[Rfam]
RNA sequence: CAAGCGGAAGCCGAAAAGCUUAAAACAGAGUAGGCG
Numbered sequence: 001c002a003a004g005c006g007g008a009a010g011c012c013g014a015a016a017a018g019c020u021u022a023a024a025a026c027a028g029a030g031u032a033g034g035c036g
Base pairs, nucleotide, nucleotide: 002021003020004019005018010035011034012033